[Rfam]
RNA sequence: AACGACCGGCCGGACACGCACGCCACUGGCUUGAGUGACCGGCCCACAAGUGGAGGCUCCGAUCUCCCACCUGGCCGCUCCUCAGGGGCGGCGGGUCACCGGUCAGACGGCCCCCAUCGUUCCGUACGGACGAUGGAGCCGUCCGAUGUGCGCCCCACGGUCACCCGUGGCGGUGCUCCGGUAGUCCUUGGAGCCCCGCCUGUGUACCGUCCGGGGCAUUUUUU
Numbered sequence: 001a002a003c004g005a006c007c008g009g010c011c012g013g014a015c016a017c018g019c020a021c022g023c024c025a026c027u028g029g030c031u032u033g034a035g036u037g038a039c040c041g042g043c044c045c046a047c048a049a050g051u052g053g054a055g056g057c058u059c060c061g062a063u064c065u066c067c068c069a070c071c072u073g074g075c076c077g078c079u080c081c082u083c084a085g086g087g088g089c090g091g092c093g094g095g096u097c098a099c100c101g102g103u104c105a106g107a108c109g110g111c112c113c114c115c116a117u118c119g120u121u122c123c124g125u126a127c128g129g130a131c132g133a134u135g136g137a138g139c140c141g142u143c144c145g146a147u148g149u150g151c152g153c154c155c156c157a158c159g160g161u162c163a164c165c166c167g168u169g170g171c172g173g174u175g176c177u178c179c180g181g182u183a184g185u186c187c188u189u190g191g192a193g194c195c196c197c198g199c200c201u202g203u204g205u206a207c208c209g210u211c212c213g214g215g216g217c218a219u220u221u222u223u224u
Stems, first nucleotide, its partner, number of pairs: 004104006012040002041097005047073002050070004054065002074092007106143005114136008152217005158209003167203002169200005175194005